[Rfam]
RNA sequence: UCAUAAGAAUUUUAAAUUUUUCGUAUAUCCUUAAUGAUUGGAUUAAGGGUCUCUACCGGAAACCGUAAAUUUCUGGCUACGAAGAUAUGCUUCGGCAUG
Numbered sequence: 001u002c003a004u005a006a007g008a009a010u011u012u013u014a015a016a017u018u019u020u021u022c023g024u025a026u027a028u029c030c031u032u033a034a035u036g037a038u039u040g041g042a043u044u045a046a047g048g049g050u051c052u053c054u055a056c057c058g059g060a061a062a063c064c065g066u067a068a069a070u071u072u073c074u075g076g077c078u079a080c081g082a083a084g085a086u087a088u089g090c091u092u093c094g095g096c097a098u099g
Stems, first nucleotide, its partner, number of pairs: 018085008029048007057075006
The record is a 99-nucleotide RNA from Paenibacillus durus, which matches "Purine riboswitch aptamer" in Rfam. Taxonomically the source falls in Paenibacillus (Bacteria, Bacillati, Bacillota, Caryophanales). Riboswitches are metabolite binding domains within certain messenger RNAs that serve as precision sensors for their corresponding targets. Allosteric rearrangement of mRNA structure is mediated by ligand binding, and this results in modulation of gene expression. A class of riboswitches that selectively recognises guanine and becomes saturated at concentrations as low as 5 nM. In Bacillus subtilis, this mRNA motif is located on at least five separate transcriptional units that together encode 17 genes that are mostly involved in purine transport and purine nucleotide biosynthesis.